RNA sequence: GCAGAUACGGCGACAUGGUGCCAGAGACAAUAGCCGGCAAGAUCGUCGGCGGCGUGUGCUCGCUGAGCGGAGUGCUGGUGAUCGCCCUGCCGGUACCCGUCAUCGUCAGC
Numbered sequence: 001g002c003a004g005a006u007a008c009g010g011c012g013a014c015a016u017g018g019u020g021c022c023a024g025a026g027a028c029a030a031u032a033g034c035c036g037g038c039a040a041g042a043u044c045g046u047c048g049g050c051g052g053c054g055u056g057u058g059c060u061c062g063c064u065g066a067g068c069g070g071a072g073u074g075c076u077g078g079u080g081a082u083c084g085c086c087c088u089g090c091c092g093g094u095a096c097c098c099g100u101c102a103u104c105g106u107c108a109g110c
Base pairs, nucleotide, nucleotide: 001110002109007106008105009104010103012101013100014099017096020094021093036076037075038074039073049061

Potassium channel RNA editing signal: a 110-nucleotide RNA sequence from Trichogramma brassicae. Rfam links the family to the GO term adenosine to inosine editing. For this family Rfam cites "Control of human potassium channel inactivation by editing of a small mRNA hairpin" (Bhalla et al., Nat Struct Mol Biol, 2004). The base pairs follow the family's consensus structure, which is taken from published work. This family represents a group of sequences related to the human potassium channel Kv1.1 hairpin element which directs the efficient modification of an adenosine to inosine by an adenosine deaminase acting on RNA (ADAR). The family's RNA type in Rfam is cis-regulatory element.